[Rfam]
Nucleotides: 067
Stems, first nucleotide, its partner, number of pairs: 001054007011022004028044004035067006
Number, partner (000 for none) and nucleotide at each position: 001054a002053c003052c004051g005050g006049g007048g008000a009000u010000a011022g012021c013020g014019c015000g016000a017000c018000g019014g020013c021012g022011c023000g024000a025000a026000a027000a028044g029043c030042g031041g032000g033000a034000a035067a036066c037065c038064u039063u040062a041031c042030c043029g044028c045000c046000u047000g048007c049006c050005c051004c052003g053002g054001u055000u056000u057000a058000u059000u060000u061000u062040u063039a064038a065037g066036g067035u
Rfam assigns this 67-nucleotide RNA from Escherichia albertii to the family "int-alpA RNA".
The family's RNA type in Rfam is small RNA.